[Rfam]
RNA: Plastid-rps12 3UTR RNA
Organism: Tetracentron sinense
RNA sequence: UGUUUCCAUUGGUGCAAAUCCAAUCACCUCAAUUUUAGAUGAGAAACAAUUCCCCAUUGGUAGCAAAUGGUUAUCCAUUAAGCGGGAGAAAUAGUGU
Numbered sequence: 001u002g003u004u005u006c007c008a009u010u011g012g013u014g015c016a017a018a019u020c021c022a023a024u025c026a027c028c029u030c031a032a033u034u035u036u037a038g039a040u041g042a043g044a045a046a047c048a049a050u051u052c053c054c055c056a057u058u059g060g061u062a063g064c065a066a067a068u069g070g071u072u073a074u075c076c077a078u079u080a081a082g083c084g085g086g087a088g089a090a091a092u093a094g095u096g097u
Base pairs, nucleotide, nucleotide: 009023010022011021012020053086054085055084056078057077059075060074061073062072063071064070